Overview: This 106-nucleotide sequence from Weizmannia acidilactici belongs to the Rfam family "SAM riboswitch aptamer (S box leader)". Lineage of the source: Bacteria > Bacillota > Bacilli > Caryophanales > Heyndrickxia.

[Rfam]
RNA sequence: UUCUUAUCAAGAGAGGUGGAGGGAUAGGCCCUGUGAAGCCUCGGCAGCAGGUUCGGAACCGGAACACUGUGCCAAUUCCUGCAGGUGGAUGCCUGAAAGAUAAGAA
Numbered sequence: 001u002u003c004u005u006a007u008c009a010a011g012a013g014a015g016g017u018g019g020a021g022g023g024a025u026a027g028g029c030c031c032u033g034u035g036a037a038g039c040c041u042c043g044g045c046a047g048c049a050g051g052u053u054c055g056g057a058a059c060c061g062g063a064a065c066a067c068u069g070u071g072c073c074a075a076u077u078c079c080u081g082c083a084g085g086u087g088g089a090u091g092c093c094u095g096a097a098a099g100a101u102a103a104g105a106a
Stems, first nucleotide, its partner, number of pairs: 001106008013042005021031003025081004043073004048069002051065004077098001082095005